Shown here is a 70-nucleotide RNA sequence from Myotis brandtii, a member of the family "Small nucleolar RNA SNORD113/SNORD114 family". Its Rfam clan is "SNORD74 clan". By type it is a C/D-box small nucleolar RNA. Rfam describes the family as follows. The imprinted human domain at 14q32 contains two clusters of tandemly repeated small nucleolar RNAs named 14q(I) and 14q(II) snoRNAs.
[Rfam]
RNA sequence: UGGAUCAUUGAUGACUACUGGUGGCAUAUGAGUCCUAUAUGAUGACUACAUGUUGACCUCUGAGGUCCAA
Number, nucleotide and partner (000 for none) at each position: 001u000002g068003g067004a066005u065006c064007a000008u000009u000010g000011a000012u000013g000014a000015c000016u000017a000018c000019u000020g000021g000022u000023g000024g000025c000026a000027u000028a000029u000030g000031a000032g000033u000034c000035c000036u000037a000038u000039a000040u000041g000042a000043u000044g000045a000046c000047u000048a000049c000050a000051u000052g000053u000054u000055g000056a000057c000058c000059u000060c000061u000062g000063a000064g006065g005066u004067c003068c002069a000070a000